[Rfam]
RNA sequence: AACAGACUCGAGGCAUCGCGUUAAGUGUCAGCGGUUGGGAAGUUGCCGUUGAACGAAAAGCACCGCUCAAUUUGUGCUUGCGGUGGUGUCUCGCUCCCGCUGUC
Numbered sequence: 001a002a003c004a005g006a007c008u009c010g011a012g013g014c015a016u017c018g019c020g021u022u023a024a025g026u027g028u029c030a031g032c033g034g035u036u037g038g039g040a041a042g043u044u045g046c047c048g049u050u051g052a053a054c055g056a057a058a059a060g061c062a063c064c065g066c067u068c069a070a071u072u073u074g075u076g077c078u079u080g081c082g083g084u085g086g087u088g089u090c091u092c093g094c095u096c097c098c099g100c101u102g103u104c
Stems, first nucleotide, its partner, number of pairs: 002103004010092009019082003025054002028052007038098002041095002058079006
RNA: THF (Tetrahydrofolate) riboswitch aptamer